[Rfam]
RNA sequence: AACAUUUAUGUGUGUGUGUGUUCAACUUUUGGACAAAGGCAUGAAGGACAAGUGCAGAAAUAAAUCCUCUUGCAACCAAGGACUCUUUGUUCAGGAUGAGUUUGGUACAUAUAAGUAGGAAUAUG
Number, nucleotide and partner (000 for none) at each position: 001a000002a000003c054004a053005u052006u051007u050008a000009u048010g000011u046012g000013u000014g040015u039016g000017u037018g000019u035020g034021u033022u000023c000024a000025a000026c031027u000028u000029u000030u000031g026032g000033a021034c020035a019036a000037a017038g000039g015040c014041a000042u000043g000044a000045a000046g011047g000048a009049c000050a007051a006052g005053u004054g003055c000056a000057g000058a000059a000060a000061u000062a000063a000064a122065u121066c000067c119068u118069c000070u114071u113072g112073c000074a000075a000076c000077c000078a000079a103080g102081g000082a101083c100084u099085c098086u000087u096088u000089g000090u000091u000092c000093a000094g000095g000096a087097u000098g085099a084100g083101u082102u080103u079104g000105g000106u000107a000108c000109a000110u000111a000112u072113a071114a070115g000116u000117a000118g068119g067120a000121a065122u064123a000124u000125g000
RNA: Small nucleolar RNA SNORA40